Record summary
A member of the RNA family "mir-9243 microRNA precursor family" from Cnephaeus nilssonii, 100 nucleotides long. The source organism's lineage runs through Eukaryota, Bilateria, Deuterostomia, Sarcopterygii and Cnephaeus. A search with the family's covariance model found it, with a score of 85 bits.
[Rfam]
RNA sequence: CCGUGCACGAAUUUCGUGCACCGGGCUUCUAGUAUAUAUAUAUUUACUAGUAUAUUUAUAUAUAUACUAGAGGCCCGGUGCACGAAAUUCGUGCACGGGA
Numbered sequence: 001c002c003g004u005g006c007a008c009g010a011a012u013u014u015c016g017u018g019c020a021c022c023g024g025g026c027u028u029c030u031a032g033u034a035u036a037u038a039u040a041u042a043u044u045u046a047c048u049a050g051u052a053u054a055u056u057u058a059u060a061u062a063u064a065u066a067c068u069a070g071a072g073g074c075c076c077g078g079u080g081c082a083c084g085a086a087a088u089u090c091g092u093g094c095a096c097g098g099g100a
Stems, first nucleotide, its partner, number of pairs: 001098002004095008013086003017082026